The record is a 139-nucleotide RNA from Oryza meridionalis, which matches "Small nucleolar RNA Z247" in Rfam. NCBI's taxonomy places the organism under Eukaryota, Streptophytina, Liliopsida, Oryzinae, Oryza. Rfam 15.1 lists 7,071 matches to the family in 142 species. The family's RNA type in Rfam is C/D-box small nucleolar RNA.

RNA sequence: CGUCUCGAUGAGGAGGAGCUUGUCUCCUACAUACUGGCUGGCCUAGACAUCGAGUUCAACCCCGUCGUCACUACUGUUGCAUCUCACGUCGAGUCAAUUUCUGUGGGCGAGUUGUUUGCUCAACUUGUCAGCUUCGAGA
Numbered sequence: 001c002g003u004c005u006c007g008a009u010g011a012g013g014a015g016g017a018g019c020u021u022g023u024c025u026c027c028u029a030c031a032u033a034c035u036g037g038c039u040g041g042c043c044u045a046g047a048c049a050u051c052g053a054g055u056u057c058a059a060c061c062c063c064g065u066c067g068u069c070a071c072u073a074c075u076g077u078u079g080c081a082u083c084u085c086a087c088g089u090c091g092a093g094u095c096a097a098u099u100u101c102u103g104u105g106g107g108c109g110a111g112u113u114g115u116u117u118g119c120u121c122a123a124c125u126u127g128u129c130a131g132c133u134u135c136g137a138g139a
Base pairs, nucleotide, nucleotide: 004138005137006136007135008134088108089107090106092104